This 126-nucleotide RNA from Dethiosulfatibacter aminovorans belongs to the Rfam family "Molybdenum/Tungsten riboswitch aptamer (Moco RNA motif)".
For this family Rfam cites "Identification of 22 candidate structured RNAs in bacteria using the CMfinder comparative genomics pipeline" (Weinberg et al., Nucleic Acids Res, 2007).
It scores 37 bits against the family's covariance model.
Pairs were carried over by alignment from the consensus structure, which is taken from published work.
[Rfam]
RNA sequence: AAUCAAAUAAAUCUCCGAUUCUUAUGUUCCGGCAGAAAACAUAGACAGAAUCAGGAAUAUAGGGACUAUGGGUAUUAAAAGUGAUUUUAUGCCUGCCGUGAUUGCAAAGGAGCUAUUCGAAUAUUU
Numbered sequence: 001a002a003u004c005a006a007a008u009a010a011a012u013c014u015c016c017g018a019u020u021c022u023u024a025u026g027u028u029c030c031g032g033c034a035g036a037a038a039a040c041a042u043a044g045a046c047a048g049a050a051u052c053a054g055g056a057a058u059a060u061a062g063g064g065a066c067u068a069u070g071g072g073u074a075u076u077a078a079a080a081g082u083g084a085u086u087u088u089a090u091g092c093c094u095g096c097c098g099u100g101a102u103u104g105c106a107a108a109g110g111a112g113c114u115a116u117u118c119g120a121a122u123a124u125u126u
Stems, first nucleotide, its partner, number of pairs: 003120002006117001011114001013112004019065011070094006077088004095105002